[Rfam]
RNA sequence: UAGGGGGAGGUUGGCGACAUCACUGCUACUGUUGCAAUGGCUGCCCACAGUACCAGACAUGCCGCCUCUCUCCCUCUACG
Numbered sequence: 001u002a003g004g005g006g007g008a009g010g011u012u013g014g015c016g017a018c019a020u021c022a023c024u025g026c027u028a029c030u031g032u033u034g035c036a037a038u039g040g041c042u043g044c045c046c047a048c049a050g051u052a053c054c055a056g057a058c059a060u061g062c063c064g065c066c067u068c069u070c071u072c073c074c075u076c077u078a079c080g
Stems, first nucleotide, its partner, number of pairs: 001078005007072004013066004018061003023056003027052005